This 46-nucleotide RNA sequence from Rubripirellula obstinata belongs to the Rfam family "Acido-Lenti-1 RNA".
The source organism's lineage runs through Bacteria, Planctomycetia, Pirellulales, Pirellulaceae and Rubripirellula.
The base pairs follow the family's consensus structure, which is taken from published work.
A search with the family's covariance model found it, with a score of 54 bits.

[Rfam]
RNA sequence: CCUGGGGCUGACGCCCCAGGCUAGGUGCUAUCGUGCCUCCGGCACU
Numbered sequence: 001c002c003u004g005g006g007g008c009u010g011a012c013g014c015c016c017c018a019g020g021c022u023a024g025g026u027g028c029u030a031u032c033g034u035g036c037c038u039c040c041g042g043c044a045c046u
Stems, first nucleotide, its partner, number of pairs: 001020008033045005